[Rfam]
RNA sequence: ACACUACAUAUUUAUUUGUCAUAAUGCUGCUUUAUUAACAGUGCCGCUUUGGACUUGUAUUCCUAUUCUUAAUUUUUGAAGGCGGUGGGUGUACAUAGCUAAAAACCAUCGCCA
Numbered sequence: 001a002c003a004c005u006a007c008a009u010a011u012u013u014a015u016u017u018g019u020c021a022u023a024a025u026g027c028u029g030c031u032u033u034a035u036u037a038a039c040a041g042u043g044c045c046g047c048u049u050u051g052g053a054c055u056u057g058u059a060u061u062c063c064u065a066u067u068c069u070u071a072a073u074u075u076u077u078g079a080a081g082g083c084g085g086u087g088g089g090u091g092u093a094c095a096u097a098g099c100u101a102a103a104a105a106c107c108a109u110c111g112c113c114a
Base pairs, nucleotide, nucleotide: 023061024060025059026058027057081113082112083111084110085109086108087107088106
RNA: Herpesvirus saimiri U RNA1/RNA2
Organism: Rhadinovirus atelinegamma3